The record is a 77-nucleotide RNA from Nocardioides agri, which matches "ZMP/ZTP riboswitch aptamer (pfl RNA motif)" in Rfam. Lineage of the source: Bacteria > Bacillati > Actinomycetes > Nocardioidaceae > Nocardioides. The family's consensus secondary structure is taken from published work. The match comes from Rfam's covariance-model search (43 bits).
RNA sequence: GUGAGGUCACACGACUGGCGCAGGUGGGGGACCACCAGGGAGUGACGCCGGGAGCAUCGACCGCCUGGGUGCUCCCC
Number, nucleotide and partner (000 for none) at each position: 001g000002u000003g049004a000005g000006g046007u045008c000009a000010c044011a043012c042013g000014a000015c039016u038017g065018g064019c063020g062021c000022a000023g000024g035025u034026g033027g032028g000029g000030g000031a000032c027033c026034a025035c024036c000037a000038g016039g015040g000041a000042g012043u011044g010045a007046c006047g000048c000049c003050g000051g000052g000053a000054g072055c071056a070057u069058c068059g000060a000061c000062c020063g019064c018065c017066u000067g000068g058069g057070u056071g055072c054073u000074c000075c000076c000077c000